[Rfam]
RNA sequence: CGUAUCGGACAGCGCGGGAGACCGCGUCAAACUCGCCUGUAAUCCCGGCAUCACCGCGCAAGUGGUGUGGCGACUUUUUCAACUGCUGCAACAGCAGCACCUCA
Numbered sequence: 001c002g003u004a005u006c007g008g009a010c011a012g013c014g015c016g017g018g019a020g021a022c023c024g025c026g027u028c029a030a031a032c033u034c035g036c037c038u039g040u041a042a043u044c045c046c047g048g049c050a051u052c053a054c055c056g057c058g059c060a061a062g063u064g065g066u067g068u069g070g071c072g073a074c075u076u077u078u079u080c081a082a083c084u085g086c087u088g089c090a091a092c093a094g095c096a097g098c099a100c101c102u103c104a
Stems, first nucleotide, its partner, number of pairs: 012027006033073005052067006084099006
Description: A member of the RNA family "DUF3577 RNA", 104 nucleotides long. Rfam's curators put it in the seed alignment. Rfam classes the family as a cis-regulatory element.